Record summary
The record is a 45-nucleotide RNA sequence from Planctomycetes bacterium MalM25, which matches "Acido-Lenti-1 RNA" in Rfam. Pairs were carried over by alignment from the consensus structure, which is taken from published work. Rfam classes the family as a small RNA. Taxonomically the source falls in Planctomycetota (Bacteria, Pseudomonadati).
[Rfam]
RNA sequence: CCCAGGGCGAUGCCCCGGGCUAUCAUCUUGCGACCCUUCGGGCCU
Numbered sequence: 001c002c003c004a005g006g007g008c009g010a011u012g013c014c015c016c017g018g019g020c021u022a023u024c025a026u027c028u029u030g031c032g033a034c035c036c037u038u039c040g041g042g043c044c045u
Base pairs, nucleotide, nucleotide: 001019002018003017005015006014007013008012032044034042035041036040